[Rfam]
RNA sequence: AUCAUUCGAGUGAGCACAAAGAGUAGCAUAAGCUCUCCUUUGACAUCUUCACCAACCUCUCAUCGUUCCCUUCUCUGUAAUAACGUCGUUUUGCAAAACUGCAAUGGUCCUGAGCCGAUAAGCCUCUAAUGAAAUUAUAGACUCAUCGGCUCAGGACCAUUGCGGUUGUGCAAAACGGUGUUAUUGCCGAGAAGGGAACGCAUGAGAGGUUGGUGAAAACGUCAAAGGGCUCUUAUGCUACUCUUUUUUUUUCUCAUAUGAGUGAGU
Numbered sequence: 001a002u003c004a005u006u007c008g009a010g011u012g013a014g015c016a017c018a019a020a021g022a023g024u025a026g027c028a029u030a031a032g033c034u035c036u037c038c039u040u041u042g043a044c045a046u047c048u049u050c051a052c053c054a055a056c057c058u059c060u061c062a063u064c065g066u067u068c069c070c071u072u073c074u075c076u077g078u079a080a081u082a083a084c085g086u087c088g089u090u091u092u093g094c095a096a097a098a099c100u101g102c103a104a105u106g107g108u109c110c111u112g113a114g115c116c117g118a119u120a121a122g123c124c125u126c127u128a129a130u131g132a133a134a135u136u137a138u139a140g141a142c143u144c145a146u147c148g149g150c151u152c153a154g155g156a157c158c159a160u161u162g163c164g165g166u167u168g169u170g171c172a173a174a175a176c177g178g179u180g181u182u183a184u185u186g187c188c189g190a191g192a193a194g195g196g197a198a199c200g201c202a203u204g205a206g207a208g209g210u211u212g213g214u215g216a217a218a219a220c221g222u223c224a225a226a227g228g229g230c231u232c233u234u235a236u237g238c239u240a241c242u243c244u245u246u247u248u249u250u251u252u253c254u255c256a257u258a259u260g261a262g263u264g265a266g267u
Stems, first nucleotide, its partner, number of pairs: 002265007010257005016248001018246015035229001037228008046219001048217016064200012077187019097167023121143002124140002127137004